Record summary:
A member of the RNA family "Guanidine-I riboswitch aptamer" from Sphaerisporangium rubeum, 116 nucleotides long.
RNA sequence: AUGAGGCGCAUCUAGGGUUCCGUCCUCGGCGGCGCGAGGGGCUGGUCCGAGAGGUGCAGGCGGCCUCCCCCCCUGAGGGGAGAGCCGUUCCACGGCGGGACAAAAACCCGGGAGAC
Numbered sequence: 001a002u003g004a005g006g007c008g009c010a011u012c013u014a015g016g017g018u019u020c021c022g023u024c025c026u027c028g029g030c031g032g033c034g035c036g037a038g039g040g041g042c043u044g045g046u047c048c049g050a051g052a053g054g055u056g057c058a059g060g061c062g063g064c065c066u067c068c069c070c071c072c073c074u075g076a077g078g079g080g081a082g083a084g085c086c087g088u089u090c091c092a093c094g095g096c097g098g099g100a101c102a103a104a105a106a107c108c109c110g111g112g113a114g115a116c
Stems, first nucleotide, its partner, number of pairs: 008057005015048002020045002022042001023040006059089006066082001091111001093114001097109003
Record summary:
Its family is annotated with regulation of gene expression in the Gene Ontology. The base pairs follow the family's consensus structure.